[Rfam]
RNA sequence: AGUGCCCUGCUGUGUUCGUGUAAGCCCGGAUGUUUUGAGCCAACACAUACACUAUGGGAGCCUAACUCUGAUUAUGGCAUGUAUGCCCCAUACUCUUUUGGGGGACACAUAAAGUAAUCAGGAGGGCACCCACCUGCCGGGGGCAGGUUCAAAACAACGGCAAUACGGCAUGGUGGGGACUUA
Numbered sequence: 001a002g003u004g005c006c007c008u009g010c011u012g013u014g015u016u017c018g019u020g021u022a023a024g025c026c027c028g029g030a031u032g033u034u035u036u037g038a039g040c041c042a043a044c045a046c047a048u049a050c051a052c053u054a055u056g057g058g059a060g061c062c063u064a065a066c067u068c069u070g071a072u073u074a075u076g077g078c079a080u081g082u083a084u085g086c087c088c089c090a091u092a093c094u095c096u097u098u099u100g101g102g103g104g105a106c107a108c109a110u111a112a113a114g115u116a117a118u119c120a121g122g123a124g125g126g127c128a129c130c131c132a133c134c135u136g137c138c139g140g141g142g143g144c145a146g147g148u149u150c151a152a153a154a155c156a157a158c159g160g161c162a163a164u165a166c167g168g169c170a171u172g173g174u175g176g177g178g179a180c181u182u183a
Stems, first nucleotide, its partner, number of pairs: 002181001005178011017167003031156004036151006056131003060127004067121001069120007081108002086104004